[Rfam]
RNA sequence: GGAGCUGCAAGUCUAGACUUGGGGGCAGUCAUGUCCUCGGGAAGGUCUGAGAGAAGAGCUGUACUACGCCCUAGAAGGGCGCUUUCCUCAUUACUGGAAAGGGGAGAGAUCAGAAAAAAGACUCUGGGACUCUGUCCAUGGCUUAAGAGAGAAGGUUUCUUCUGGAGGCUGAGGGCCGGAGUUCCUGGGAUGAAAGCUCUCCUGGCUGGCGAAGGUAGCUUAAUGUCUAGAAUGAUAAUCCUAUCAUAACUCAAUUCAGACUACUCUGCAGCUCC
Numbered sequence: 001g002g003a004g005c006u007g008c009a010a011g012u013c014u015a016g017a018c019u020u021g022g023g024g025g026c027a028g029u030c031a032u033g034u035c036c037u038c039g040g041g042a043a044g045g046u047c048u049g050a051g052a053g054a055a056g057a058g059c060u061g062u063a064c065u066a067c068g069c070c071c072u073a074g075a076a077g078g079g080c081g082c083u084u085u086c087c088u089c090a091u092u093a094c095u096g097g098a099a100a101g102g103g104g105a106g107a108g109a110u111c112a113g114a115a116a117a118a119a120g121a122c123u124c125u126g127g128g129a130c131u132c133u134g135u136c137c138a139u140g141g142c143u144u145a146a147g148a149g150a151g152a153a154g155g156u157u158u159c160u161u162c163u164g165g166a167g168g169c170u171g172a173g174g175g176c177c178g179g180a181g182u183u184c185c186u187g188g189g190a191u192g193a194a195a196g197c198u199c200u201c202c203u204g205g206c207u208g209g210c211g212a213a214g215g216u217a218g219c220u221u222a223a224u225g226u227c228u229a230g231a232a233u234g235a236u237a238a239u240c241c242u243a244u245c246a247u248a249a250c251u252c253a254a255u256u257c258a259g260a261c262u263a264c265u266c267u268g269c270a271g272c273u274c275c
Base pairs, nucleotide, nucleotide: 001275002274003273004272007269008268009267012231013230014229015228016227017226018225021038022037023036024035025034026033027032047259048258049257050256051255057207058206059205060204067081068080069079070078071077082101083100084099085098086097087096102203103202104201105200106199107198108197122188123187232247233246234245235244236243237242
Rfam assigns this 275-nucleotide RNA sequence from Lepeophtheirus salmonis to the family "Nuclear RNase P". A search with the family's covariance model found it, with a score of 138 bits. For this family Rfam cites "Ribonuclease P: unity and diversity in a tRNA processing ribozyme" (Frank and Pace, Annu Rev Biochem, 1998). Rfam 15.1 lists 3,848 matches to the family in 1,862 species. Lineage of the source: Eukaryota > Panarthropoda > Arthropoda > Podoplea > Lepeophtheirus.